MIR8024 microRNA precursor family: an 86-nucleotide RNA from Solanum lycopersicum.
The organism belongs to Solanum subgen. Lycopersicon, within Eukaryota.
Pairs were carried over by alignment from the consensus structure, which was predicted with RNAalifold.
[Rfam]
RNA sequence: UUGAAGAAUUUGAAGACUUCAACUUGAAGUCUUUAUAAAUUUGUAGACUUUAACUUGCAAACUUGAAGAAUUAUAAGACUUCAACU
Numbered sequence: 001u002u003g004a005a006g007a008a009u010u011u012g013a014a015g016a017c018u019u020c021a022a023c024u025u026g027a028a029g030u031c032u033u034u035a036u037a038a039a040u041u042u043g044u045a046g047a048c049u050u051u052a053a054c055u056u057g058c059a060a061a062c063u064u065g066a067a068g069a070a071u072u073a074u075a076a077g078a079c080u081u082c083a084a085c086u
Base pairs, nucleotide, nucleotide: 001084002083003082004081005080006079009076010075013072014071017068018067019066020065021064025059026058028056032053033052035050
Dot-bracket structure: ((((((..((..((..(((((...((.(...((.(..............).))..).))....)))))..))..))..))))))..